This 78-nucleotide RNA sequence from Bradyrhizobium sp. Leo170 belongs to the Rfam family "Makes More Granules Regulator RNA (mmgR)". The pairing is the family consensus, mapped onto this sequence. The source organism's lineage runs through Bacteria, Pseudomonadota, Hyphomicrobiales, Nitrobacteraceae and Bradyrhizobium. The family's RNA type in Rfam is small RNA.
[Rfam]
RNA sequence: UGUCGCAGCCCUCCUUGGGCGUUUCCUCCCUAGACUUGGGCCGCUUGCUGUCGCAGGUGGCCCUUUUUUCUCAGCCCC
Numbered sequence: 001u002g003u004c005g006c007a008g009c010c011c012u013c014c015u016u017g018g019g020c021g022u023u024u025c026c027u028c029c030c031u032a033g034a035c036u037u038g039g040g041c042c043g044c045u046u047g048c049u050g051u052c053g054c055a056g057g058u059g060g061c062c063c064u065u066u067u068u069u070c071u072c073a074g075c076c077c078c
Base pairs, nucleotide, nucleotide: 008020009019010018011017038063039062040061041060042059043058044057045056046055